[Rfam]
RNA sequence: GAACCUCUGAUGAAAGCAUGUAUGUUC
Numbered sequence: 001g002a003a004c005c006u007c008u009g010a011u012g013a014a015a016g017c018a019u020g021u022a023u024g025u026u027c
Base pairs, nucleotide, nucleotide: 001027002026003025004024008022010019011018012017

Shown here is a 27-nucleotide RNA sequence from Phocoena sinus, a member of the family "L19-Flavobacteria ribosomal protein leader". A reference for the family is Eckert and Weinberg (2020), "Discovery of 20 novel ribosomal leader candidates in bacteria and archaea", BMC Microbiol. The match comes from Rfam's covariance-model search (33 bits). By type it is a cis-regulatory leader.